The family of this 146-nucleotide sequence from Gossypium klotzschianum is "MIR7502 microRNA precursor family".
Taxonomically the source falls in Gossypium (Eukaryota, Viridiplantae, Mesangiospermae, Malvaceae).
Gene Ontology terms of the family: RISC complex and miRNA-mediated post-transcriptional gene silencing.
RNA sequence: CGUUAAAAAUUUCAUCAAUUUCUAUUGUUAAAAAUUAAUCCCUGUAGGUCAACAUGAGAUACAUGUGGUAUGCCACGUGUCACUGUGUAGUUAUUUUUGUUAGCCAUGCCAGUUUUUAACAAUAGAAAUUGAUAAAAGUUUUAAUA
Numbered sequence: 001c002g003u004u005a006a007a008a009a010u011u012u013c014a015u016c017a018a019u020u021u022c023u024a025u026u027g028u029u030a031a032a033a034a035u036u037a038a039u040c041c042c043u044g045u046a047g048g049u050c051a052a053c054a055u056g057a058g059a060u061a062c063a064u065g066u067g068g069u070a071u072g073c074c075a076c077g078u079g080u081c082a083c084u085g086u087g088u089a090g091u092u093a094u095u096u097u098u099g100u101u102a103g104c105c106a107u108g109c110c111a112g113u114u115u116u117u118a119a120c121a122a123u124a125g126a127a128a129u130u131g132a133u134a135a136a137a138g139u140u141u142u143a144a145u146a
Stems, first nucleotide, its partner, number of pairs: 002145007010137003014133003018129009028119008